[Rfam]
RNA sequence: UGUUUCAACAUCCCCGUGUCCUCACUGACGGAGGCACAUCCGUCAGUGAGGACACGGUGAAACA
Numbered sequence: 001u002g003u004u005u006c007a008a009c010a011u012c013c014c015c016g017u018g019u020c021c022u023c024a025c026u027g028a029c030g031g032a033g034g035c036a037c038a039u040c041c042g043u044c045a046g047u048g049a050g051g052a053c054a055c056g057g058u059g060a061a062a063c064a
Base pairs, nucleotide, nucleotide: 001064002063003062004061005060006059007058013048014046016055017054018053019052020051021050022049027044028043029042030041031040032039
The record is a 64-nucleotide RNA from Pleuronectes platessa, which matches "nadA riboswitch" in Rfam. A search with the family's covariance model found it, with a score of 38 bits. NCBI's taxonomy places the organism under Eukaryota, Eumetazoa, Clupeocephala, Euteleosteomorpha, Pleuronectes. A reference for the family is Chen et al. (2020), "Structural distinctions between NAD+ riboswitch domains 1 and 2 determine differential folding and ligand binding", Nucleic Acids Res.